Rfam assigns this 116-nucleotide RNA from Caenorhabditis auriculariae to the family "Potassium channel RNA editing signal". On this family, see Bhalla et al., Nat Struct Mol Biol 2004: "Control of human potassium channel inactivation by editing of a small mRNA hairpin". The source organism's lineage runs through Eukaryota, Ecdysozoa, Rhabditina, Peloderinae and Caenorhabditis. It is annotated as a cis-regulatory element. Rfam links the family to the GO term adenosine to inosine editing.
RNA sequence: CUAGGUUACGGUGACAUGGUUCCAUCUACAGUGAUGGGAAAAAUCGUGGGAGGAAUUUGCUCGCUUUCCGGAGUUUUGGUGAUCGCCUUGCCAGUUCCUGUAAGUUUUUUUUUCAC
Numbered sequence: 001c002u003a004g005g006u007u008a009c010g011g012u013g014a015c016a017u018g019g020u021u022c023c024a025u026c027u028a029c030a031g032u033g034a035u036g037g038g039a040a041a042a043a044u045c046g047u048g049g050g051a052g053g054a055a056u057u058u059g060c061u062c063g064c065u066u067u068c069c070g071g072a073g074u075u076u077u078g079g080u081g082a083u084c085g086c087c088u089u090g091c092c093a094g095u096u097c098c099u100g101u102a103a104g105u106u107u108u109u110u111u112u113u114c115a116c
Stems, first nucleotide, its partner, number of pairs: 002115001004113002008109001010107002014101003018097002021094001037077004050062002